A member of the RNA family "MIR2617 microRNA precursor family" from Medicago truncatula, 81 nucleotides long.
The family has 3 seed sequences and 1,174 matches in Rfam 15.1.
Taxonomically the source falls in Medicago (Eukaryota, Streptophytina, Tracheophyta, Gunneridae).
Its family is annotated with RISC complex and miRNA-mediated post-transcriptional gene silencing in the Gene Ontology.
The family's consensus secondary structure was predicted with RNAalifold.
RNA sequence: AUGACGUGUAGCAUGCCCGUUGUGGGAUACUCUGAUGUUUAUACGCUAUUUUAUUGCUUUUGGGUAACGGGGUGUUACAGA
Numbered sequence: 001a002u003g004a005c006g007u008g009u010a011g012c013a014u015g016c017c018c019g020u021u022g023u024g025g026g027a028u029a030c031u032c033u034g035a036u037g038u039u040u041a042u043a044c045g046c047u048a049u050u051u052u053a054u055u056g057c058u059u060u061u062g063g064g065u066a067a068c069g070g071g072g073u074g075u076u077a078c079a080g081a
Stems, first nucleotide, its partner, number of pairs: 007079008016071006